[Rfam]
The record is a 356-nucleotide RNA from Thiolapillus brandeum, which matches "Bacterial RNase P class A" in Rfam. About the family: Ribonuclease P (RNase P) is a ubiquitous endoribonuclease, found in archaea, bacteria and eukarya as well as chloroplasts and mitochondria. Rfam classes the family as a ribozyme. A reference for the family is Frank and Pace (1998), "Ribonuclease P: unity and diversity in a tRNA processing ribozyme", Annu Rev Biochem. Its family is annotated with ribonuclease P activity, tRNA processing and dimeric ribonuclease P complex in the Gene Ontology.
RNA sequence: GAAGACGGUCGGGUAGUCGCUGUUGCCAUGCAAUAGAGGAAAGUCCGGGCUCCAUAGGGCAAGUCGCCAGGUAACGCCUGGGAGGCGCAAGCCUACGGAUAGUGCCACAGAAAAUAUACCGCCUGCUUCGGCAGGUAAGGGUGAAAAGGUGCGGUAAGAGCGCACCGCGCUGCCGGUAACGGCAGUGGCAGGGUAAACCCCGGCUGGAGCAAGACCAAAUAGGGAAGCUGAUGCUGUUGCCCGCAGUUGCUUCCGGGUAGGUUGCUUGAGGCGUCCGGUGACGGGCGUCCCAGAUGAAUGACUAUCACGGCAGCUUCGGUUGCUGACAGAACCCGGCUUACAGACCGUCUUCCCAU
Numbered sequence: 001g002a003a004g005a006c007g008g009u010c011g012g013g014u015a016g017u018c019g020c021u022g023u024u025g026c027c028a029u030g031c032a033a034u035a036g037a038g039g040a041a042a043g044u045c046c047g048g049g050c051u052c053c054a055u056a057g058g059g060c061a062a063g064u065c066g067c068c069a070g071g072u073a074a075c076g077c078c079u080g081g082g083a084g085g086c087g088c089a090a091g092c093c094u095a096c097g098g099a100u101a102g103u104g105c106c107a108c109a110g111a112a113a114a115u116a117u118a119c120c121g122c123c124u125g126c127u128u129c130g131g132c133a134g135g136u137a138a139g140g141g142u143g144a145a146a147a148g149g150u151g152c153g154g155u156a157a158g159a160g161c162g163c164a165c166c167g168c169g170c171u172g173c174c175g176g177u178a179a180c181g182g183c184a185g186u187g188g189c190a191g192g193g194u195a196a197a198c199c200c201c202g203g204c205u206g207g208a209g210c211a212a213g214a215c216c217a218a219a220u221a222g223g224g225a226a227g228c229u230g231a232u233g234c235u236g237u238u239g240c241c242c243g244c245a246g247u248u249g250c251u252u253c254c255g256g257g258u259a260g261g262u263u264g265c266u267u268g269a270g271g272c273g274u275c276c277g278g279u280g281a282c283g284g285g286c287g288u289c290c291c292a293g294a295u296g297a298a299u300g301a302c303u304a305u306c307a308c309g310g311c312a313g314c315u316u317c318g319g320u321u322g323c324u325g326a327c328a329g330a331a332c333c334c335g336g337c338u339u340a341c342a343g344a345c346c347g348u349c350u351u352c353c354c355a356u
Base pairs, nucleotide, nucleotide: 001352002351003350004349005348006347007346008345009344010343011341012306013305014304015303016302017301018300020036021035022034023033024032025031026030041339042338043337045336046335047334048333049332050209051208052207053206057242058241059240060239062205063204064203065202066201067081068080069079070078071077082096083094084093085092086091097200098199102198103197104194105193106192119140120139121136122135123134124133125132126131148166149165150164151163152162153161167189168187169186170185171184172183173182174181175180213263214262215261216260223254224253225252226251227250228249233247234246235245236244237243270289271288272287273286274285275284276283277282
It scores 351 bits against the family's covariance model. Taxonomically the source falls in Thiolapillus (Bacteria, Gammaproteobacteria, Chromatiales, Sedimenticolaceae).